This 128-nucleotide sequence from Python bivittatus belongs to the Rfam family "Small nucleolar RNA SNORA47".
The match comes from Rfam's covariance-model search (76 bits).
Taxonomically the source falls in Python (Eukaryota, Metazoa, Chordata, Sauria).
The base pairs follow the family's consensus structure, which was predicted with WAR.
Rfam 15.1 lists 733 matches to the family in 635 species.
Rfam links the family to the GO terms nucleolus and RNA processing.

RNA sequence: AGGAGGCCUGAGAAAAUAAGGCAGUUCCAUGUACUGCAUUUAUUGGUUACAACCUCCAAAAUCAAAUUGUGCAAAAGCAAGUCAUGUUCCUUUGACUCAUAUAGGAAUACCAUUGCUACUUGCAUAUA
Numbered sequence: 001a002g003g004a005g006g007c008c009u010g011a012g013a014a015a016a017u018a019a020g021g022c023a024g025u026u027c028c029a030u031g032u033a034c035u036g037c038a039u040u041u042a043u044u045g046g047u048u049a050c051a052a053c054c055u056c057c058a059a060a061a062u063c064a065a066a067u068u069g070u071g072c073a074a075a076a077g078c079a080a081g082u083c084a085u086g087u088u089c090c091u092u093u094g095a096c097u098c099a100u101a102u103a104g105g106a107a108u109a110c111c112a113u114u115g116c117u118a119c120u121u122g123c124a125u126a127u128a
Base pairs, nucleotide, nucleotide: 002057003056004055005054006053015044016043017042018041019039021037022036023035024034025033076120077119081116082115084113085112086111092107093106096105097104